RNA sequence: GACCGCACUCACGGGAGCCCGGACGCACCGGGCUGAGAGGGAGGCUGACGCGGCCUCCGACCGUAGGAACCUGAUCCGGGUCAUGCCGGCGAAGGGAGAAGGAAUGUCCAUGAU
Number, nucleotide and partner (000 for none) at each position: 001g000002a000003c000004c000005g000006c102007a000008c000009u099010c098011a064012c063013g062014g061015g000016a000017g033018c032019c031020c030021g029022g000023a000024c000025g000026c000027a000028c000029c021030g020031g019032g018033c017034u000035g000036a000037g000038a000039g000040g058041g057042a056043g055044g054045c053046u052047g051048a000049c000050g000051c047052g046053g045054c044055c043056u042057c041058c040059g000060a000061c014062c013063g012064u011065a000066g000067g000068a000069a000070c095071c094072u093073g000074a000075u000076c089077c088078g087079g086080g000081u000082c000083a000084u000085g000086c079087c078088g077089g076090c000091g000092a000093a072094g071095g070096g000097a000098g010099a009100a000101g000102g006103a000104a000105u000106g000107u000108c000109c000110a000111u000112g000113a000114u000
RNA: TPP riboswitch aptamer (THI element)